[Rfam]
RNA sequence: CCCUCCGUGAGACGGCGGCGCACGAGGCCAGUAAAGGAACCGGGGAAAGCUAACCCACCUACCCACCCACCUCUUUGACCUGUCCCGACCCGCUGUCGCUCGCGCGGGUGAACUGUGCCAACUGGGCGGAUUUGGCGCCGGUUGCCGGGCAUAUGCUCGCGCCGAAACAACCGCAGACAUGCGUCGGCCCCCGGCAGGACUAGCGAUCCGCGCCGGGGGCCUGACCCAACCAGGAAGCACAGACCUUCCCA
Numbered sequence: 001c002c003c004u005c006c007g008u009g010a011g012a013c014g015g016c017g018g019c020g021c022a023c024g025a026g027g028c029c030a031g032u033a034a035a036g037g038a039a040c041c042g043g044g045g046a047a048a049g050c051u052a053a054c055c056c057a058c059c060u061a062c063c064c065a066c067c068c069a070c071c072u073c074u075u076u077g078a079c080c081u082g083u084c085c086c087g088a089c090c091c092g093c094u095g096u097c098g099c100u101c102g103c104g105c106g107g108g109u110g111a112a113c114u115g116u117g118c119c120a121a122c123u124g125g126g127c128g129g130a131u132u133u134g135g136c137g138c139c140g141g142u143u144g145c146c147g148g149g150c151a152u153a154u155g156c157u158c159g160c161g162c163c164g165a166a167a168c169a170a171c172c173g174c175a176g177a178c179a180u181g182c183g184u185c186g187g188c189c190c191c192c193g194g195c196a197g198g199a200c201u202a203g204c205g206a207u208c209c210g211c212g213c214c215g216g217g218g219g220c221c222u223g224a225c226c227c228a229a230c231c232a233g234g235a236a237g238c239a240c241a242g243a244c245c246u247u248c249c250c251a
Base pairs, nucleotide, nucleotide: 007230008229009226015083016082017081018080096111097110098109099108100107101106126160127159128158129157186221187220188219189218190217192215193214194213197209198208199207233249234248235247236246237245
Shown here is a 251-nucleotide sequence from Streptomyces globosus, a member of the family "Streptomyces sRNA 4677".
Rfam 15.1 lists 563 matches to the family in 285 species.
On this family, see Hindra et al., PLoS One 2014: "Complex intra-operonic dynamics mediated by a small RNA in Streptomyces coelicolor".
From the family's description: Located in the intergenic region between anti-sigma factor SCO4677 gene and a putative regulatory protein gene SCO4676. scr4677 expression requires the SCO4677 activity and scr4677 sRNA itself seem to affect the levels of the SCO4676-associated transcripts.
By type it is a small RNA.